[Rfam]
RNA sequence: GAAACGGUUUUAUAGGGUUCCGCAGCGAAAGCUGGCCUGGUCCGAGAUAAAACGGGUCGGACGAACAUACCGGCCUAACACGGAAGGACAAAAGCCUGGGAGAU
Numbered sequence: 001g002a003a004a005c006g007g008u009u010u011u012a013u014a015g016g017g018u019u020c021c022g023c024a025g026c027g028a029a030a031g032c033u034g035g036c037c038u039g040g041u042c043c044g045a046g047a048u049a050a051a052a053c054g055g056g057u058c059g060g061a062c063g064a065a066c067a068u069a070c071c072g073g074c075c076u077a078a079c080a081c082g083g084a085a086g087g088a089c090a091a092a093a094g095c096c097u098g099g100g101a102g103a104u
Base pairs, nucleotide, nucleotide: 007053008052009051010050011049012048015043016042020040021039022037023034024033025032026031055075056074057073058072059071060070079099081102085097086096087095

Source information: Guanidine-I riboswitch aptamer: a 104-nucleotide RNA sequence from Slackia heliotrinireducens. The pairing is the family consensus, mapped onto this sequence. A search with the family's covariance model found it, with a score of 80 bits. Lineage of the source: Bacteria > Bacillati > Actinomycetota > Eggerthellaceae > Slackia heliotrinireducens. The literature on the family includes a 2004 paper in Proc Natl Acad Sci U S A by Barrick et al., "New RNA motifs suggest an expanded scope for riboswitches in bacterial genetic control".